[Rfam]
RNA: MIR6288 microRNA precursor family
RNA sequence: GAAAAACUAGCCACUUGUCAUUUUCUAAUUGGUUUUUAGUGUGUUAAAAAACUUCUAAAAUCAAUUAGAAAAUGACAAGUGGCUAGUUCUUG
Numbered sequence: 001g002a003a004a005a006a007c008u009a010g011c012c013a014c015u016u017g018u019c020a021u022u023u024u025c026u027a028a029u030u031g032g033u034u035u036u037u038a039g040u041g042u043g044u045u046a047a048a049a050a051a052c053u054u055c056u057a058a059a060a061u062c063a064a065u066u067a068g069a070a071a072a073u074g075a076c077a078a079g080u081g082g083c084u085a086g087u088u089c090u091u092g
Stems, first nucleotide, its partner, number of pairs: 002091002005088032039054001